[Rfam]
RNA sequence: AUUCACAUUUGUGACUGUGAGUGUGGCUAAUUGCAAAUUAGCUACUGUUGCUGAUAGUUGGGAAGGUGUAGGGACAACCCUUUUGGGUUUUCCUGCAUGACGGGCAUCUGUAUUUAGAUGCCC
Numbered sequence: 001a002u003u004c005a006c007a008u009u010u011g012u013g014a015c016u017g018u019g020a021g022u023g024u025g026g027c028u029a030a031u032u033g034c035a036a037a038u039u040a041g042c043u044a045c046u047g048u049u050g051c052u053g054a055u056a057g058u059u060g061g062g063a064a065g066g067u068g069u070a071g072g073g074a075c076a077a078c079c080c081u082u083u084u085g086g087g088u089u090u091u092c093c094u095g096c097a098u099g100a101c102g103g104g105c106a107u108c109u110g111u112a113u114u115u116a117g118a119u120g121c122c123c
Base pairs, nucleotide, nucleotide: 006066008064009063010062012060013059014058015057017055018054020052021051022050023045024044025043026042027041028040029039067097068096069095070094071093072092073091076089077088078087079086102123103122104121105120106119107118108117109116110115
The family of this 123-nucleotide RNA sequence from Amazonocrinis nigriterrae is "Nitrogen stress-induced RNA 9".
On this family, see Brenes-Alvarez et al., Front Microbiol 2016: "Identification of Conserved and Potentially Regulatory Small RNAs in Heterocystous Cyanobacteria".
Pairs were carried over by alignment from the consensus structure, which was predicted with RNAalifold.